[Rfam]
RNA sequence: AAGUGAUUUCAGCUCUUUUAGUAUUUGUCCAGCAGGUUUCCCAUCGCGUGGGAAGCCUAA
Numbered sequence: 001a002a003g004u005g006a007u008u009u010c011a012g013c014u015c016u017u018u019u020a021g022u023a024u025u026u027g028u029c030c031a032g033c034a035g036g037u038u039u040c041c042c043a044u045c046g047c048g049u050g051g052g053a054a055g056c057c058u059a060a
Stems, first nucleotide, its partner, number of pairs: 035057009